The record is a 119-nucleotide sequence from Triticum urartu, which matches "U5 spliceosomal RNA" in Rfam.
About the family: U5 RNA is a component of both types of known spliceosome.
The match comes from Rfam's covariance-model search (86 bits).
It is annotated as a spliceosomal small nuclear RNA.
Pairs were carried over by alignment from the consensus structure, which is taken from published work.

RNA sequence: AGCUGCGCAGCGGGCACAAAGCGAACUAUUCUUUCGCCUUUUACUAAAGAAUACCGUGUGCACACUGCAAUUAGCAGCAUACGCUAAUUUUUGAAGGGGAUUCUCCUUCAUUGGAGGGC
Dot-bracket structure: ..((((.(((.(.(((((........((((((((...........))))))))...))))).).)))......)))).......................((((((......)))))).